[Rfam]
RNA sequence: ACCCCCAGCAUUGUACCCAGGGUCUCUGCAGACAUUGCACCUGGAGCUGCCCCCACCUCAAAUAAACUCAAAU
Numbered sequence: 001a002c003c004c005c006c007a008g009c010a011u012u013g014u015a016c017c018c019a020g021g022g023u024c025u026c027u028g029c030a031g032a033c034a035u036u037g038c039a040c041c042u043g044g045a046g047c048u049g050c051c052c053c054c055a056c057c058u059c060a061a062a063u064a065a066a067c068u069c070a071a072a073u
Stems, first nucleotide, its partner, number of pairs: 006049004017044004022033004
A member of the RNA family "U1A polyadenylation inhibition element (PIE)" from Erithacus rubecula, 73 nucleotides long. NCBI's taxonomy places the organism under Eukaryota, Teleostomi, Tetrapoda, Coelurosauria, Erithacus. The family's consensus secondary structure is taken from published work. Rfam's curators write: This family represents the U1A polyadenylation inhibition element (PIE). It is annotated as a cis-regulatory element. On this family, see Clerte and Hall, Biochemistry 2004: "Global and Local Dynamics of the U1A Polyadenylation Inhibition Element (PIE) RNA and PIE RNA-U1A Complexes".